This 61-nucleotide RNA sequence from Pristionchus pacificus belongs to the Rfam family "mir-8364 microRNA precursor family". Taxonomically the source falls in Pristionchus (Eukaryota, Eumetazoa, Bilateria, Rhabditida). The family's consensus secondary structure was predicted with RNAalifold.

RNA sequence: UCUUCAUCUCGCACACUCUCUCACCUGUCCGAGAGGCGAGACAGUGUGCGAAGUGAAGUGA
Numbered sequence: 001u002c003u004u005c006a007u008c009u010c011g012c013a014c015a016c017u018c019u020c021u022c023a024c025c026u027g028u029c030c031g032a033g034a035g036g037c038g039a040g041a042c043a044g045u046g047u048g049c050g051a052a053g054u055g056a057a058g059u060g061a
Stems, first nucleotide, its partner, number of pairs: 002058006010050001012048006019041004
About this RNA:
Its family is annotated with RISC complex and miRNA-mediated post-transcriptional gene silencing in the Gene Ontology.